[Rfam]
RNA: DUF3800-VIII RNA
RNA sequence: CAAGCCCUGCCUGUCCGAAGUCUGACGUUAUGCGUCAGAUACUCAUGUAGGCCAGGUGGGGUUCU
Numbered sequence: 001c002a003a004g005c006c007c008u009g010c011c012u013g014u015c016c017g018a019a020g021u022c023u024g025a026c027g028u029u030a031u032g033c034g035u036c037a038g039a040u041a042c043u044c045a046u047g048u049a050g051g052c053c054a055g056g057u058g059g060g061g062u063u064c065u
Stems, first nucleotide, its partner, number of pairs: 003063011015051002020040009